Shown here is a 359-nucleotide part of an RNA from Ramalina farinacea, a member of the family "Eukaryotic small subunit ribosomal RNA".
RNA sequence: AGCUCGUAGUUGAAACUUGGGUCUGGCUGACCGGUCCGCCUCACCGCGUGCACUGGCUCGGCCGGGCCUUUCCUUCUGGGGAGCCGCAUGCCCUUCAGUGGGUGUGCUGGGGAACCAGGACUUUUACUUUGAAAAAAUUAGAGUGUUCAAAGCAGGCAUAUGCUCGAAUACAUUAGCAUGGAAUAAUAGAAUAGGAUGUGUGGUCCUAUUUUGUUGGUUUCUAGGACCGCCGUAAUGAUUAAUAGGGAUAGUCGGGGGCGUCUGUAUUUUUGAGCAAGAGGUGAAAUUCUUGGAUUUCAAAAAGACAAACUACUGCGAAAGCAUUCGCCAAGGAUGUUUUCAUUAAUCAGUGAACGAAA
Number, nucleotide and partner (000 for none) at each position: 001a000002g355003c000004u353005c352006g000007u000008a000009g347010u346011u345012g000013a000014a000015a000016c000017u000018u000019g000020g000021g000022u000023c000024u000025g000026g000027c000028u000029g000030a000031c000032c000033g000034g000035u000036c000037c000038g000039c000040c000041u000042c000043a000044c000045c000046g000047c000048g000049u000050g000051c000052a000053c000054u000055g000056g000057c000058u000059c000060g000061g000062c000063c000064g000065g000066g000067c000068c000069u000070u000071u000072c000073c000074u000075u000076c000077u000078g000079g000080g000081g000082a000083g000084c000085c000086g000087c000088a000089u000090g000091c000092c000093c000094u000095u000096c000097a000098g000099u000100g000101g000102g000103u000104g000105u000106g000107c000108u000109g000110g000111g000112g000113a000114a000115c000116c000117a000118g000119g000120a000121c000122u000123u000124u000125u000126a000127c000128u000129u000130u000131g000132a000133a000134a000135a000136a000137a000138u000139u000140a000141g000142a000143g000144u000145g000146u000147u000148c000149a000150a000151a000152g000153c000154a000155g000156g000157c000158a000159u000160a000161u000162g000163c000164u000165c000166g000167a000168a000169u000170a000171c000172a000173u000174u000175a000176g000177c000178a000179u000180g000181g000182a000183a000184u000185a000186a000187u000188a000189g000190a000191a000192u000193a000194g000195g000196a000197u000198g000199u000200g000201u000202g000203g000204u000205c000206c000207u000208a000209u000210u000211u000212u000213g000214u000215u000216g000217g000218u000219u000220u000221c000222u000223a000224g000225g000226a000227c000228c000229g000230c000231c000232g000233u000234a000235a000236u000237g000238a000239u000240u000241a000242a000243u000244a000245g341246g340247g339248a338249u336250a335251g000252u333253c332254g000255g000256g000257g329258g328259c327260g326261u000262c000263u307264g306265u000266a000267u303268u302269u301270u300271u299272g298273a297274g296275c000276a000277a000278g289279a288280g287281g000282u000283g000284a000285a000286a000287u280288u279289c278290u000291u000292g000293g000294a000295u000296u274297u273298c272299a271300a270301a269302a268303a267304g000305a000306c264307a263308a000309a000310c000311u000312a000313c000314u000315g322316c321317g000318a000319a000320a000321g316322c315323a000324u000325u000326c260327g259328c258329c257330a000331a000332g253333g252334a000335u250336g249337u000338u248339u247340u246341c245342a000343u000344u000345a011346a010347u009348c000349a000350g000351u000352g005353a004354a000355c002356g000357a000358a000359a000

The family's consensus secondary structure is taken from published work.